[Rfam]
RNA sequence: AGCUGGUCUGAUAGUAGUGGGUUAUCAGAACUUACUAAAGUUAAUGUCACUAAUCCCCCACUGCUAAAUUUGACAGGCAAAU
Numbered sequence: 001a002g003c004u005g006g007u008c009u010g011a012u013a014g015u016a017g018u019g020g021g022u023u024a025u026c027a028g029a030a031c032u033u034a035c036u037a038a039a040g041u042u043a044a045u046g047u048c049a050c051u052a053a054u055c056c057c058c059c060a061c062u063g064c065u066a067a068a069u070u071u072g073a074c075a076g077g078c079a080a081a082u
Stems, first nucleotide, its partner, number of pairs: 002078003006074003010071002015066001016062006026046002030042001
RNA: Y RNA
Organism: Molossus molossus